[Rfam]
RNA sequence: UAGCAAUCGCGGCGAAAUCGGAACUGGGUGACAGAGACCGAUUGGAUGAUGUGAGGAGCAUUUGAGUUUAUCCGGCCAGGCGGCUGAGGAUUGCCGCCAUCCUAUGCCUGGCCGGUUGGCUCGA
Numbered sequence: 001u002a003g004c005a006a007u008c009g010c011g012g013c014g015a016a017a018u019c020g021g022a023a024c025u026g027g028g029u030g031a032c033a034g035a036g037a038c039c040g041a042u043u044g045g046a047u048g049a050u051g052u053g054a055g056g057a058g059c060a061u062u063u064g065a066g067u068u069u070a071u072c073c074g075g076c077c078a079g080g081c082g083g084c085u086g087a088g089g090a091u092u093g094c095c096g097c098c099a100u101c102c103u104a105u106g107c108c109u110g111g112c113c114g115g116u117u118g119g120c121u122c123g124a
Stems, first nucleotide, its partner, number of pairs: 009097005017042005049061004062124007072115010087103005
Rfam assigns this 124-nucleotide RNA from Pseudomonas sp. BAY1663 to the family "RT-12 RNA". Rfam classes the family as a small RNA.